RNA: tRNA
RNA sequence: GCCCUCAUAGCUCAGGUGGUAGAGCGUGCCCUUGGUAAGGGCAAGGUCAUGGGUUCGAAUCCCAUUGGGGGCU
Dot-bracket structure: (((((((..((((........)))).(((((.......))))).....(((((.......)))))))))))).